[Rfam]
RNA sequence: AAAAAGGGCAUCUGCUUUGUCUGGCACAGUAGGGAAAGGGACUCUCUGACCUUACUGCGGAAUCGCAAUCAAGAGAUUUCGGAUGCAUAAUUUUUAAUAACCGGGACUGCUGAUGGUCGUUUACCUCGGCGUCCCA
Numbered sequence: 001a002a003a004a005a006g007g008g009c010a011u012c013u014g015c016u017u018u019g020u021c022u023g024g025c026a027c028a029g030u031a032g033g034g035a036a037a038g039g040g041a042c043u044c045u046c047u048g049a050c051c052u053u054a055c056u057g058c059g060g061a062a063u064c065g066c067a068a069u070c071a072a073g074a075g076a077u078u079u080c081g082g083a084u085g086c087a088u089a090a091u092u093u094u095u096a097a098u099a100a101c102c103g104g105g106a107c108u109g110c111u112g113a114u115g116g117u118c119g120u121u122u123a124c125c126u127c128g129g130c131g132u133c134c135c136a
Stems, first nucleotide, its partner, number of pairs: 008086005013026004027057008035047001037045002058081007104134004109130005115125003
U11 spliceosomal RNA: a 136-nucleotide RNA from Chanos chanos. The source organism's lineage runs through Eukaryota, Eumetazoa, Actinopterygii, Anotophysi and Chanos. The family's consensus secondary structure is taken from published work.